This 81-nucleotide RNA sequence from Xiphophorus maculatus belongs to the Rfam family "mir-31 microRNA precursor family". Clan: mir-31 microRNA precursor family. The match comes from Rfam's covariance-model search (69 bits).
[Rfam]
RNA sequence: GUCCCGAAGGAAGGCAAGAUGUUGGCAUAGCUGUUGAACUCUGAGGCCUGCUAUGCCAACAACUUGCCAUCUUUCUCUCCC
Numbered sequence: 001g002u003c004c005c006g007a008a009g010g011a012a013g014g015c016a017a018g019a020u021g022u023u024g025g026c027a028u029a030g031c032u033g034u035u036g037a038a039c040u041c042u043g044a045g046g047c048c049u050g051c052u053a054u055g056c057c058a059a060c061a062a063c064u065u066g067c068c069a070u071c072u073u074u075c076u077c078u079c080c081c
Stems, first nucleotide, its partner, number of pairs: 006075006013068006020061002023058009